[Rfam]
RNA sequence: ACUGUCCUUAUCUUGGGGUUGCAUGGCUGUUCAAUGAACAUAUGGUGAGAACAGCACUGCUCACACCAUUAAACACUUGCGCAUCACCUAGGCAUCUGUCUAGGCGAUGGUGCAAUUUAUUUUAAA
Dot-bracket structure: .....((((.....))))..(((..(((((((.....((.....))..)))))))..)))....................((((((((((((......))))))...)))))).............

U4atac minor spliceosomal RNA: a 126-nucleotide RNA sequence from Scyliorhinus torazame. By type it is a spliceosomal small nuclear RNA. For this family Rfam cites "Domains of human U4atac snRNA required for U12-dependent splicing in vivo" (Shukla et al., Nucleic Acids Res, 2002). From the family's description: U4atac is an essential component of the minor U12-type spliceosome complex which is required for removal of the rarer class of eukaryotic introns (AT-AC, U12-type). NCBI's taxonomy places the organism under Eukaryota, Eumetazoa, Chondrichthyes, Scyliorhinidae, Scyliorhinus. The family is grouped with related families in Rfam's "U4 clan". The match comes from Rfam's covariance-model search (85 bits).